A member of the RNA family "Ribosomal protein L10 leader" from Hydrogenispora ethanolica, 145 nucleotides long. This family is a putative r-protein leader autoregulatory structure found in B. subtilis and other low-GC Gram-positive bacteria. It is located in the 5' untranslated regions of mRNAs encoding ribosomal proteins L10 and L12 (rplJ-rplL). A Rho-independent transcription terminator structure that is probably involved in regulation is included at the 3' end. A search with the family's covariance model found it, with a score of 53 bits. NCBI's taxonomy places the organism under Bacteria, Bacillati, Bacillota, Hydrogenispora.
RNA sequence: UGAAUAUUUGAAUUCGCGCCAUAGACAGUAGGCAUCGGUAAUUGAGCCGAUUUAAUGGGGAAACCCGCCUACCGAGGCUGGAAUGGUUUUCACAGGGUGAUAACAGACCUCCAGUUUAGCUAUGGGGGUCUUUAUUUUUUGUUUC
Numbered sequence: 001u002g003a004a005u006a007u008u009u010g011a012a013u014u015c016g017c018g019c020c021a022u023a024g025a026c027a028g029u030a031g032g033c034a035u036c037g038g039u040a041a042u043u044g045a046g047c048c049g050a051u052u053u054a055a056u057g058g059g060g061a062a063a064c065c066c067g068c069c070u071a072c073c074g075a076g077g078c079u080g081g082a083a084u085g086g087u088u089u090u091c092a093c094a095g096g097g098u099g100a101u102a103a104c105a106g107a108c109c110u111c112c113a114g115u116u117u118a119g120c121u122a123u124g125g126g127g128g129u130c131u132u133u134a135u136u137u138u139u140u141g142u143u144u145c
Stems, first nucleotide, its partner, number of pairs: 028072006034051006106130008